[Rfam]
RNA sequence: AGAGAUUGCAAGUUGGAGAUCAUAGCUGGAGUGCUCAUGGUGCAGCAAUGUCAGAUUCCAAUGAAUCUGCAAAUUCUGCU
Numbered sequence: 001a002g003a004g005a006u007u008g009c010a011a012g013u014u015g016g017a018g019a020u021c022a023u024a025g026c027u028g029g030a031g032u033g034c035u036c037a038u039g040g041u042g043c044a045g046c047a048a049u050g051u052c053a054g055a056u057u058c059c060a061a062u063g064a065a066u067c068u069g070c071a072a073a074u075u076c077u078g079c080u
Base pairs, nucleotide, nucleotide: 013048014047015046020045024080025079026078028076029075030074031043032042033041052069053068054067055066056065057064058063
Dot-bracket structure: ............[[[....[...(((.((((((.......))).]]]]...(((((((....)))))))....))).)))